Record summary: Rfam assigns this 116-nucleotide RNA sequence from Arthrobacter sp. NamB2 to the family "SAM (S-adenosyl methionine) riboswitch aptamer". It scores 86 bits against the family's covariance model. Taxonomically the source falls in Arthrobacter (Bacteria, Bacillati, Actinomycetota, Micrococcaceae). The base pairs follow the family's consensus structure, which is taken from published work.
RNA sequence: AAUCAAGAGUUCCAGCCACAGGCCCUGGCCGGUUGGACAGCAACCCUCUCCCGUAGUGGGGUGCUCCAGGUGAAGAUUCGGCCGCCGAGAUAUUUUCCGGUUGGCAAGUACGGCGU
Numbered sequence: 001a002a003u004c005a006a007g008a009g010u011u012c013c014a015g016c017c018a019c020a021g022g023c024c025c026u027g028g029c030c031g032g033u034u035g036g037a038c039a040g041c042a043a044c045c046c047u048c049u050c051c052c053g054u055a056g057u058g059g060g061g062u063g064c065u066c067c068a069g070g071u072g073a074a075g076a077u078u079c080g081g082c083c084g085c086c087g088a089g090a091u092a093u094u095u096u097c098c099g100g101u102u103g104g105c106a107a108g109u110a111c112g113g114c115g116u
Base pairs, nucleotide, nucleotide: 001078002077003076004075009038011037012036013035014034015033016032021030022029039065040064041063044061045060046059048056049055081105082104083103084102085100086099087098089096090095